[Rfam]
Bacterial RNase P class A: a 414-nucleotide sequence from Acetobacter vaccinii. NCBI's taxonomy places the organism under Bacteria, Pseudomonadati, Pseudomonadota, Alphaproteobacteria, Acetobacter. Pairs were carried over by alignment from the consensus structure, which is taken from published work. By type it is a ribozyme.

RNA sequence: CCAGACGGUCGGACGGUCGCUGUUGCCUGUGCAAAUCGGGUGAUGGAGGAAAGUCCGGGCUCCAUGGGAGAACGGUGCCGGCUAACGGCCGGCGAGGGUGACCUUAGGGAAAGUGCCACAGAAAACAAACCGCCUUCCUGGUCCAACCAUGGGCAACCAUGGGACAGGCUGAAGGUAAGGGUGAAACGGUGCGGUAAGAGCGCACCGCUCCGCUGGCAACAGGGGAGGCAUGGUAAACCCCACCGGGAGCAAGACCGAAUAGGAACAGCUGAGGCUACGUGUAGCCUCAGGGGUCUCUCGCCCCGCUGUUCGGGUUGGUUGCGUGAGGCACGCCGCAAGGCGCGUCCCAGAGGAAUGACCGUCCAAGCCCUUAACAGGGCCGGACAGAACCCGGCUUACAGACCGUCUGGCAUU
Numbered sequence: 001c002c003a004g005a006c007g008g009u010c011g012g013a014c015g016g017u018c019g020c021u022g023u024u025g026c027c028u029g030u031g032c033a034a035a036u037c038g039g040g041u042g043a044u045g046g047a048g049g050a051a052a053g054u055c056c057g058g059g060c061u062c063c064a065u066g067g068g069a070g071a072a073c074g075g076u077g078c079c080g081g082c083u084a085a086c087g088g089c090c091g092g093c094g095a096g097g098g099u100g101a102c103c104u105u106a107g108g109g110a111a112a113g114u115g116c117c118a119c120a121g122a123a124a125a126c127a128a129a130c131c132g133c134c135u136u137c138c139u140g141g142u143c144c145a146a147c148c149a150u151g152g153g154c155a156a157c158c159a160u161g162g163g164a165c166a167g168g169c170u171g172a173a174g175g176u177a178a179g180g181g182u183g184a185a186a187c188g189g190u191g192c193g194g195u196a197a198g199a200g201c202g203c204a205c206c207g208c209u210c211c212g213c214u215g216g217c218a219a220c221a222g223g224g225g226a227g228g229c230a231u232g233g234u235a236a237a238c239c240c241c242a243c244c245g246g247g248a249g250c251a252a253g254a255c256c257g258a259a260u261a262g263g264a265a266c267a268g269c270u271g272a273g274g275c276u277a278c279g280u281g282u283a284g285c286c287u288c289a290g291g292g293g294u295c296u297c298u299c300g301c302c303c304c305g306c307u308g309u310u311c312g313g314g315u316u317g318g319u320u321g322c323g324u325g326a327g328g329c330a331c332g333c334c335g336c337a338a339g340g341c342g343c344g345u346c347c348c349a350g351a352g353g354a355a356u357g358a359c360c361g362u363c364c365a366a367g368c369c370c371u372u373a374a375c376a377g378g379g380c381c382g383g384a385c386a387g388a389a390c391c392c393g394g395c396u397u398a399c400a401g402a403c404c405g406u407c408u409g410g411c412a413u414u
Stems, first nucleotide, its partner, number of pairs: 001410010011399001012363007020046009051397003055394005060249004068299004073245005078092005093107001094105004108240002113238002115234003130180002132176006188206006207229001208227004213222003253320004263311006290304005327346003331342004